[Rfam]
RNA sequence: AAAUUAAUAACGUUACACCGUCGUAUAAUUUCGGGGAUAAGGCCCGAUCGUUUCUACCAGGCUGCCGUAAAUGGCCUGACUACGCUGGUGAAUUGGGCAAGU
Dot-bracket structure: .................(((.((((.....(((((.......)))))..........(((((((.......)))))))..)))).)))..............
Numbered sequence: 001a002a003a004u005u006a007a008u009a010a011c012g013u014u015a016c017a018c019c020g021u022c023g024u025a026u027a028a029u030u031u032c033g034g035g036g037a038u039a040a041g042g043c044c045c046g047a048u049c050g051u052u053u054c055u056a057c058c059a060g061g062c063u064g065c066c067g068u069a070a071a072u073g074g075c076c077u078g079a080c081u082a083c084g085c086u087g088g089u090g091a092a093u094u095g096g097g098c099a100a101g102u
Stems, first nucleotide, its partner, number of pairs: 018088003022084004031047005058078007